[Rfam]
RNA sequence: CAGGGAACAGUAUUGGUGGGACCUACUCCUGUUAAUAUUAUUGGAAGAAAUAUAUUGACAGGAUUAGGUUGUACACUAAACUUCCCUAUAAGCCCCAUAGCCCCAGUGCCAGU
Numbered sequence: 001c002a003g004g005g006a007a008c009a010g011u012a013u014u015g016g017u018g019g020g021a022c023c024u025a026c027u028c029c030u031g032u033u034a035a036u037a038u039u040a041u042u043g044g045a046a047g048a049a050a051u052a053u054a055u056u057g058a059c060a061g062g063a064u065u066a067g068g069u070u071g072u073a074c075a076c077u078a079a080a081c082u083u084c085c086c087u088a089u090a091a092g093c094c095c096c097a098u099a100g101c102c103c104c105a106g107u108g109c110c111a112g113u
Stems, first nucleotide, its partner, number of pairs: 004110002007107002010104001014100001016098005022092001031059008065088004
About this RNA
This 113-nucleotide RNA from Lentivirus humimdef1 belongs to the Rfam family "HIV pol-1 stem loop". A reference for the family is Wang et al. (2008), "Evidence of a novel RNA secondary structure in the coding region of HIV-1 pol gene", RNA. It is annotated as a cis-regulatory element.